[Rfam]
RNA sequence: GAAAUUGUCGUCUUCUGCCGCCAGCAGGGCGUGGAUGAAAUCCUGGGGGAUGUCAUCGAAGCGAAUGGGGGAGCGGCGCAUCUCGCCAAACUCGGCGAUCAGCUUGUUAUCGCUGCUGUAGACGCGCAGGGGAAUCUGCAGCUGGAUGCUGCGCAGUGACUCGACCGAGGGCAGGCCAGGGCUAAGGUAGAGGAAGGCCCCGCUGAAACUGAGGGCUAGCCCACAAAAAACGGCGACGCAAGACCACCAGAAAAACUUCAGCAGACGCAUUAGGACUCUUGGAUUUCCAGAUAA
Numbered sequence: 001g002a003a004a005u006u007g008u009c010g011u012c013u014u015c016u017g018c019c020g021c022c023a024g025c026a027g028g029g030c031g032u033g034g035a036u037g038a039a040a041u042c043c044u045g046g047g048g049g050a051u052g053u054c055a056u057c058g059a060a061g062c063g064a065a066u067g068g069g070g071g072a073g074c075g076g077c078g079c080a081u082c083u084c085g086c087c088a089a090a091c092u093c094g095g096c097g098a099u100c101a102g103c104u105u106g107u108u109a110u111c112g113c114u115g116c117u118g119u120a121g122a123c124g125c126g127c128a129g130g131g132g133a134a135u136c137u138g139c140a141g142c143u144g145g146a147u148g149c150u151g152c153g154c155a156g157u158g159a160c161u162c163g164a165c166c167g168a169g170g171g172c173a174g175g176c177c178a179g180g181g182c183u184a185a186g187g188u189a190g191a192g193g194a195a196g197g198c199c200c201c202g203c204u205g206a207a208a209c210u211g212a213g214g215g216c217u218a219g220c221c222c223a224c225a226a227a228a229a230a231c232g233g234c235g236a237c238g239c240a241a242g243a244c245c246a247c248c249a250g251a252a253a254a255a256c257u258u259c260a261g262c263a264g265a266c267g268c269a270u271u272a273g274g275a276c277u278c279u280u281g282g283a284u285u286u287c288c289a290g291a292u293a294a
Stems, first nucleotide, its partner, number of pairs: 010172006017165001019163002025045005047084006054078001057075002062069001086095002103158001105155003108148004115142008125131001176290001179287003183283001186279002197268002201264001202262006213239001217235001221232001